[Rfam]
RNA: MAT2A 3'UTR stem loop E
RNA sequence: CCAGCAUUCCUGGGUAGGCCAAGGGUGUCCUACAUAAUACCUCUUAAGUUAGAUCUACAGGGUGUCUGA
Numbered sequence: 001c002c003a004g005c006a007u008u009c010c011u012g013g014g015u016a017g018g019c020c021a022a023g024g025g026u027g028u029c030c031u032a033c034a035u036a037a038u039a040c041c042u043c044u045u046a047a048g049u050u051a052g053a054u055c056u057a058c059a060g061g062g063u064g065u066c067u068g069a
Base pairs, nucleotide, nucleotide: 002068003067004066006065007064009062010061011060014058015057016056017055018054021045022044023043024041025040027033028032